[Rfam]
RNA sequence: CAAAAGGGUGUUUACCGCUUCGAUGGUACACGCGCCGGCAACGGUGCGUGGGGUAUGGUUAUCAAGACAUACCCAACACAUAAUUUUUGUUUUCGCGAAGCUGUUGGCUACCACUUAUGUACCGGCGCUUCC
Numbered sequence: 001c002a003a004a005a006g007g008g009u010g011u012u013u014a015c016c017g018c019u020u021c022g023a024u025g026g027u028a029c030a031c032g033c034g035c036c037g038g039c040a041a042c043g044g045u046g047c048g049u050g051g052g053g054u055a056u057g058g059u060u061a062u063c064a065a066g067a068c069a070u071a072c073c074c075a076a077c078a079c080a081u082a083a084u085u086u087u088u089g090u091u092u093u094c095g096c097g098a099a100g101c102u103g104u105u106g107g108c109u110a111c112c113a114c115u116u117a118u119g120u121a122c123c124g125g126c127g128c129u130u131c132c
Stems, first nucleotide, its partner, number of pairs: 008079005013028005029050009051074007098130004103126005109121003

U11 spliceosomal RNA: a 132-nucleotide RNA from Pararge aegeria. Its Rfam clan is "U1 clan". The organism belongs to Pararge aegeria, within Eukaryota. It scores 93 bits against the family's covariance model. The literature on the family includes a 2008 paper in J Mol Evol by Marz et al., "Evolution of spliceosomal snRNA genes in metazoan animals".